[Rfam]
Annotation: Rfam assigns this 95-nucleotide RNA from Mongoliitalea lutea to the family "TPP riboswitch aptamer (THI element)".

RNA sequence: AUCAAGUGAUAGGGGUGCCUUAAUACAACGGGCUGAGAUCAUACCCUUUGACCUGAACCCGGUAAUGCGGGCGUAGGAAUUAUUCAUUUAACCGA
Numbered sequence: 001a002u003c004a005a006g007u008g009a010u011a012g013g014g015g016u017g018c019c020u021u022a023a024u025a026c027a028a029c030g031g032g033c034u035g036a037g038a039u040c041a042u043a044c045c046c047u048u049u050g051a052c053c054u055g056a057a058c059c060c061g062g063u064a065a066u067g068c069g070g071g072c073g074u075a076g077g078a079a080u081u082a083u084u085c086a087u088u089u090a091a092c093c094g095a
Stems, first nucleotide, its partner, number of pairs: 006083005011047004016041001017033004052077004058071004

About the family: Vitamin B(1) in its active form thiamin pyrophosphate (TPP) is an essential coenzyme that is synthesised by coupling of pyrimidine and thiazole moieties in bacteria. Lineage of the source: Bacteria > Pseudomonadati > Cytophagia > Cytophagales > Mongoliitalea.